[Rfam]
RNA: Group II catalytic intron D1-D4-3
Organism: Thomasclavelia ramosa
RNA sequence: UUGACAGUAAUGACAUGGGUGAAGGAAGUAAUGUGAUGUAGCGAUUCUUUUGAACAUGUGAACAGGAACUUAAUGAGGCUAAAUGGUGGAUAAGGUUGCGCUACAAACCAAAGUCCAAAUGGUAUAUGUAAGACUAAGACAGUAAAUCAAGACAUUGUGAAAGAAUUAGGAUUCAU
Numbered sequence: 001u002u003g004a005c006a007g008u009a010a011u012g013a014c015a016u017g018g019g020u021g022a023a024g025g026a027a028g029u030a031a032u033g034u035g036a037u038g039u040a041g042c043g044a045u046u047c048u049u050u051u052g053a054a055c056a057u058g059u060g061a062a063c064a065g066g067a068a069c070u071u072a073a074u075g076a077g078g079c080u081a082a083a084u085g086g087u088g089g090a091u092a093a094g095g096u097u098g099c100g101c102u103a104c105a106a107a108c109c110a111a112a113g114u115c116c117a118a119a120u121g122g123u124a125u126a127u128g129u130a131a132g133a134c135u136a137a138g139a140c141a142g143u144a145a146a147u148c149a150a151g152a153c154a155u156u157g158u159g160a161a162a163g164a165a166u167u168a169g170g171a172u173u174c175a176u
Stems, first nucleotide, its partner, number of pairs: 002015002005012002038173001042169001047163006053156002057152001069151003073147001078143003084136004088116004094109004